[Rfam]
RNA: Mammalian CPEB3 ribozyme
Organism: Alligator sinensis
RNA sequence: AGUCACAAGUUCAAGGCCACAGCAGAAGCACCCAUGACACAGCCCUGUCAGAUUCCAACAAAUCUGCAAAUUCUGCU
Number, nucleotide and partner (000 for none) at each position: 001a000002g000003u000004c000005a000006c000007a000008a000009g000010u000011u000012c000013a000014a000015g044016g043017c042018c000019a000020c000021a077022g076023c075024a074025g073026a072027a071028g040029c000030a000031c000032c000033c000034a000035u000036g000037a000038c000039a000040c028041a000042g017043c016044c015045c000046u000047g000048u000049c066050a065051g064052a063053u062054u061055c000056c000057a000058a000059c000060a000061a054062a053063u052064c051065u050066g049067c000068a000069a000070a000071u027072u026073c025074u024075g023076c022077u021